[Rfam]
RNA sequence: GUGUUAUCAAGAAAGGCGGAGGGAUUAGACCCAUUGAAGCCUUAGCAACCCUUAAGCAAUUAAGAAGGUGCUAAAUUCUACUUAAUUUUCGAUUCAUUUAUCGAAUGUUGGAUAGAUAACUA
Numbered sequence: 001g002u003g004u005u006a007u008c009a010a011g012a013a014a015g016g017c018g019g020a021g022g023g024a025u026u027a028g029a030c031c032c033a034u035u036g037a038a039g040c041c042u043u044a045g046c047a048a049c050c051c052u053u054a055a056g057c058a059a060u061u062a063a064g065a066a067g068g069u070g071c072u073a074a075a076u077u078c079u080a081c082u083u084a085a086u087u088u089u090c091g092a093u094u095c096a097u098u099u100a101u102c103g104a105a106u107g108u109u110g111g112a113u114a115g116a117u118a119a120c121u122a
Base pairs, nucleotide, nucleotide: 003120004119005118006117007116008115013043014042015041016040017039021032022031023030026080027079028078029077044072045071046070047069049068050067051064052063053062054061076114081111082110084108